[Rfam]
Glycine riboswitch aptamer: a 95-nucleotide RNA sequence from Acrocarpospora corrugata. Its family is annotated with glycine biosynthetic process in the Gene Ontology. The match comes from Rfam's covariance-model search (46 bits).

RNA sequence: GUGACCUCUGGAAAGCAGGCCUGCGCCUCGCCGAAGGUGAAAGUCCGGGCAAAAUCCGGGCGAAGCUCUCAGGCACCGAUGACAGAGGGGGAGGA
Number, nucleotide and partner (000 for none) at each position: 001g000002u000003g000004a000005c088006c087007u086008c085009u084010g083011g000012a000013a000014a000015g000016c000017a028018g027019g026020c025021c000022u000023g000024c000025g020026c019027c018028u017029c000030g074031c073032c072033g070034a069035a000036g000037g068038u000039g066040a000041a000042a000043g061044u060045c059046c058047g057048g056049g055050c000051a000052a000053a000054a000055u049056c048057c047058g046059g045060g044061c043062g000063a000064a000065g000066c039067u000068c037069u034070c033071a000072g032073g031074c030075a000076c000077c000078g000079a000080u000081g000082a000083c010084a009085g008086a007087g006088g005089g000090g000091g000092a000093g000094g000095a000